[Rfam]
This 76-nucleotide RNA sequence from Albula goreensis belongs to the Rfam family "Small nucleolar RNA SNORD59".

RNA sequence: CCUCCUGUGAUGAUUUGAACAGCAUGACUUUCGUUCUUCUGAGCACGCUGAAGCCAGCCUUUCUGUCCUGAGGAGG
Dot-bracket structure: (((.(..................................................................).)))

The family's consensus secondary structure was predicted with ILM. The match comes from Rfam's covariance-model search (69 bits). Its Rfam clan is "SNORD59 clan". Rfam 15.1 lists 1,355 matches to the family in 620 species. On this family, see Galardi et al., Mol Cell Biol 2002: "Purified box C/D snoRNPs are able to reproduce site-specific 2'-O-methylation of target RNA in vitro". Lineage of the source: Eukaryota > Actinopterygii > Actinopteri > Teleostei > Albula. Its family is annotated with RNA processing and nucleolus in the Gene Ontology.